[Rfam]
Nucleotides: 143
Base pairs, nucleotide, nucleotide: 020043021042022041023040024039051090052089053088054087055086056081057080058079059078060077061076065072098117101115102114103113104112105111120136121135
Number, partner (000 for none) and nucleotide at each position: 001000u002000a003000g004000c005000c006000g007000g008000u009000g010000a011000a012000a013000a014000u015000c016000c017000g018000g019000u020043c021042g022041c023040g024039g025000g026000a027000g028000g029000g030000g031000c032000c033000a034000a035000g036000c037000c038000c039024c040023c041022g042021c043020g044000u045000a046000g047000c048000u049000a050000g051090g052089a053088u054087g055086c056081c057080u058079g059078c060077g061076u062000a063000c064000g065072g066000c067000g068000a069000a070000a071000u072065c073000u074000g075000u076061g077060c078059g079058u080057a081056g082000a083000a084000g085000c086055g087054c088053g089052u090051c091000g092000a093000c094000g095000a096000a097000a098117g099000u100000a101115c102114c103113u104112g105111u106000c107000a108000g109000a110000g111105a112104c113103a114102g115101g116000g117098c118000g119000a120136g121135c122000a123000a124000g125000a126000u127000a128000c129000c130000a131000g132000g133000c134000c135121g136120u137000a138000a139000c140000a141000u142000g143000a
Overview
This 143-nucleotide sequence from Paenibacillus rigui belongs to the Rfam family "Group II catalytic intron D1-D4-4". The match comes from Rfam's covariance-model search (97 bits).